Rfam assigns this 164-nucleotide RNA from Piscinibacter sp. HJYY11 to the family "FMN riboswitch aptamer (RFN element)".
RNA sequence: ACACGUCUUCAGGGCGGGGCGGAAUUCCCCACCGGCGGUAGGCAGCCUCCUGUUCCAACAGCGGCUGCGAGCCCGCGAGCGUCUCGCUCUUCUCAGGGCGAGGGUCAGCAGACCUGGUGCGAGGCCAGGGCCGACGGUCACAGUCCGGAUGAAAGAAGAUGUGC
Numbered sequence: 001a002c003a004c005g006u007c008u009u010c011a012g013g014g015c016g017g018g019g020c021g022g023a024a025u026u027c028c029c030c031a032c033c034g035g036c037g038g039u040a041g042g043c044a045g046c047c048u049c050c051u052g053u054u055c056c057a058a059c060a061g062c063g064g065c066u067g068c069g070a071g072c073c074c075g076c077g078a079g080c081g082u083c084u085c086g087c088u089c090u091u092c093u094c095a096g097g098g099c100g101a102g103g104g105u106c107a108g109c110a111g112a113c114c115u116g117g118u119g120c121g122a123g124g125c126c127a128g129g130g131c132c133g134a135c136g137g138u139c140a141c142a143g144u145c146c147g148g149a150u151g152a153a154a155g156a157a158g159a160u161g162u163g164c
Stems, first nucleotide, its partner, number of pairs: 003162008017029003031144002033133002035076004071131002079109002113129005135147003